[Rfam]
RNA sequence: GCAAGAGCUUGUUCAACAGCUGCAUGAUUUAAAGCUAAAGGAAUUUGAUUGCUUUAAAUCAUGCAGCUGUUGAACAAGCUCCCUGC
Numbered sequence: 001g002c003a004a005g006a007g008c009u010u011g012u013u014c015a016a017c018a019g020c021u022g023c024a025u026g027a028u029u030u031a032a033a034g035c036u037a038a039a040g041g042a043a044u045u046u047g048a049u050u051g052c053u054u055u056a057a058a059u060c061a062u063g064c065a066g067c068u069g070u071u072g073a074a075c076a077a078g079c080u081c082c083c084u085g086c
Base pairs, nucleotide, nucleotide: 002085003084005081006080007079008078009077010076011075012074013073014072015071016070017069018068019067020066021065022064024062025061026060027059028058029057030056031055032054033053034052035051